Shown here is a 69-nucleotide RNA from Oryzias latipes, a member of the family "mir-338 microRNA precursor family".
[Rfam]
RNA sequence: CCUGAAACAAUAUCCUGGUGCUGCCCGAGUGCGGCUCACAGACUCCAGCAUCAGUGAUUUUGUUGCAGG
Numbered sequence: 001c002c003u004g005a006a007a008c009a010a011u012a013u014c015c016u017g018g019u020g021c022u023g024c025c026c027g028a029g030u031g032c033g034g035c036u037c038a039c040a041g042a043c044u045c046c047a048g049c050a051u052c053a054g055u056g057a058u059u060u061u062g063u064u065g066c067a068g069g
Stems, first nucleotide, its partner, number of pairs: 006064005012058003015054009

The sequence is in the family's curated seed alignment.